[Rfam]
RNA: Small nucleolar RNA SNORA40
RNA sequence: AGCACUGUGUUUGCUUUUGUUUCGUUUGAGGACAAAGACUUAGACGAGAGCCCAAGGUGAGUCCCGUCCUGCAGCCCAGAACUCACUGUUCAUUCUGAGUGUUGACACGGAUAAGAAGGAACAUG
Numbered sequence: 001a002g003c004a005c006u007g008u009g010u011u012u013g014c015u016u017u018u019g020u021u022u023c024g025u026u027u028g029a030g031g032a033c034a035a036a037g038a039c040u041u042a043g044a045c046g047a048g049a050g051c052c053c054a055a056g057g058u059g060a061g062u063c064c065c066g067u068c069c070u071g072c073a074g075c076c077c078a079g080a081a082c083u084c085a086c087u088g089u090u091c092a093u094u095c096u097g098a099g100u101g102u103u104g105a106c107a108c109g110g111a112u113a114a115g116a117a118g119g120a121a122c123a124u125g
Stems, first nucleotide, its partner, number of pairs: 002051002005048002007045002010042001013039001015037006025030001061122002064119002067116002070113002077104003081100005